[Rfam]
RNA sequence: CAUAAGUCAUAUGACUGACGGACAAGUGGAGUUUACCACAGGAAGUAUGACAACGAAUUUUUAGCCGACCGUCUGGGCACCCUGC
Numbered sequence: 001c002a003u004a005a006g007u008c009a010u011a012u013g014a015c016u017g018a019c020g021g022a023c024a025a026g027u028g029g030a031g032u033u034u035a036c037c038a039c040a041g042g043a044a045g046u047a048u049g050a051c052a053a054c055g056a057a058u059u060u061u062u063a064g065c066c067g068a069c070c071g072u073c074u075g076g077g078c079a080c081c082c083u084g085c
Stems, first nucleotide, its partner, number of pairs: 006051007015042002017073005026039004064078003
The record is an 85-nucleotide RNA from Anaerostipes caccae, which matches "ZMP/ZTP riboswitch aptamer (pfl RNA motif)" in Rfam. The family has 185 seed sequences and 3,295 matches in Rfam 15.1. Its family is annotated with regulation of purine nucleotide biosynthetic process and one-carbon metabolic process in the Gene Ontology. The family's consensus secondary structure is taken from published work. The organism belongs to Anaerostipes caccae, within Bacteria.